[Rfam]
RNA sequence: GGAGGUGGCUCAUGACAAUUUCCCGUUUGUCCCAGUUCUAUCGAACCUACUUAUCGACCUGUAAAGCGAAGUGGUUGCGAUGGAUAUCUACCCAACAGCGCGUUGCAUUAUUGCAGCAGGCGACGCAGUGGCACCUGAACGAAAUGUCCGACGACGAAUACCGUCAUUGGCUCUAGGUGGUGCGAGGAAAAGUAUUCUGAGUAAUGGUGAUAUUUCACCAACCAGCGAGUUUUCUCGCUGGUUUUUUUU
Numbered sequence: 001g002g003a004g005g006u007g008g009c010u011c012a013u014g015a016c017a018a019u020u021u022c023c024c025g026u027u028u029g030u031c032c033c034a035g036u037u038c039u040a041u042c043g044a045a046c047c048u049a050c051u052u053a054u055c056g057a058c059c060u061g062u063a064a065a066g067c068g069a070a071g072u073g074g075u076u077g078c079g080a081u082g083g084a085u086a087u088c089u090a091c092c093c094a095a096c097a098g099c100g101c102g103u104u105g106c107a108u109u110a111u112u113g114c115a116g117c118a119g120g121c122g123a124c125g126c127a128g129u130g131g132c133a134c135c136u137g138a139a140c141g142a143a144a145u146g147u148c149c150g151a152c153g154a155c156g157a158a159u160a161c162c163g164u165c166a167u168u169g170g171c172u173c174u175a176g177g178u179g180g181u182g183c184g185a186g187g188a189a190a191a192g193u194a195u196u197c198u199g200a201g202u203a204a205u206g207g208u209g210a211u212a213u214u215u216c217a218c219c220a221a222c223c224a225g226c227g228a229g230u231u232u233u234c235u236c237g238c239u240g241g242u243u244u245u246u247u248u249u
Base pairs, nucleotide, nucleotide: 001174002173003172004171005167006166007165008164009163023131024130025129026127028125029124030123031122032120033119035117036116039113040112041110043108055077056076057075058074060071062069081107082106084104086103087102089100091098221242222241223240224239225238226237227236228235
RNA: SgrS RNA
Organism: Pectobacterium atrosepticum